Shown here is a 36-nucleotide sequence from Octodon degus, a member of the family "Iron response element I". Taxonomically the source falls in Octodon (Eukaryota, Chordata, Dipnotetrapodomorpha, Euarchontoglires). The family's consensus secondary structure is taken from published work. A search with the family's covariance model found it, with a score of 46 bits.

RNA sequence: UCUGUUUUUGCUUCAACAGUGUUUGAACGGAACAGG
Dot-bracket structure: ((((((((.(.((((((...).))))))))))))))